[Rfam]
RNA sequence: AAAAUCCUUCGGGGCAGGGUGAAAUUCCCUACCGGCGGUGAUGUACGCAGUACAGCAGCUUAACAAAGCUGAACGCUGCGUCUUAGUCCGUGACCCGGAUAUGUGUGUGAUGAUACACACCGUAUGCGGUGGACCUGGUGUAAAUCCGGGACCGACAGUAUAGUCUGGAUGGGAGAAGGAGUGA
Numbered sequence: 001a002a003a004a005u006c007c008u009u010c011g012g013g014g015c016a017g018g019g020u021g022a023a024a025u026u027c028c029c030u031a032c033c034g035g036c037g038g039u040g041a042u043g044u045a046c047g048c049a050g051u052a053c054a055g056c057a058g059c060u061u062a063a064c065a066a067a068g069c070u071g072a073a074c075g076c077u078g079c080g081u082c083u084u085a086g087u088c089c090g091u092g093a094c095c096c097g098g099a100u101a102u103g104u105g106u107g108u109g110a111u112g113a114u115a116c117a118c119a120c121c122g123u124a125u126g127c128g129g130u131g132g133a134c135c136u137g138g139u140g141u142a143a144a145u146c147c148g149g150g151a152c153c154g155a156c157a158g159u160a161u162a163g164u165c166u167g168g169a170u171g172g173g174a175g176a177a178g179g180a181g182u183g184a
Stems, first nucleotide, its partner, number of pairs: 003182001005180006017029003031164002033154002035091004095129002134150005156167003

About this RNA: FMN riboswitch aptamer (RFN element): a 184-nucleotide sequence from Paenibacillus solani. Its family is annotated with FMN binding in the Gene Ontology. A search with the family's covariance model found it, with a score of 104 bits. The RFN element is a highly conserved domain that is found frequently in the 5'-untranslated regions of prokaryotic mRNAs that encode for flavin mononucleotide (FMN) biosynthesis and transport proteins. Pairs were carried over by alignment from the consensus structure, which is taken from published work.